[Rfam]
RNA sequence: AUGCCUUAAACUGAUGAGUAAGGAAAAUAACGAUGCGGGGUGACGCCCGUAUCCUCGUACAAUUGCGAGAAAAAUUUUUGAAGGGGCACAGGUCUGCCCGCUGAGGUGACUUGCCUACUUUGCGAGAUGCCUCGUGGGACCAGGACCUCCCCC
Numbered sequence: 001a002u003g004c005c006u007u008a009a010a011c012u013g014a015u016g017a018g019u020a021a022g023g024a025a026a027a028u029a030a031c032g033a034u035g036c037g038g039g040g041u042g043a044c045g046c047c048c049g050u051a052u053c054c055u056c057g058u059a060c061a062a063u064u065g066c067g068a069g070a071a072a073a074a075u076u077u078u079u080g081a082a083g084g085g086g087c088a089c090a091g092g093u094c095u096g097c098c099c100g101c102u103g104a105g106g107u108g109a110c111u112u113g114c115c116u117a118c119u120u121u122g123c124g125a126g127a128u129g130c131c132u133c134g135u136g137g138g139a140c141c142a143g144g145a146c147c148u149c150c151c152c153c
Base pairs, nucleotide, nucleotide: 004023005022006021007020008019032053033052034051035050036049037048038047039046054069055068056067057066058065083153084152085151086150090148091147092146093145094144095143099136100135104132105131106130107129108128110126111125112124113123114122
RNA: U12 minor spliceosomal RNA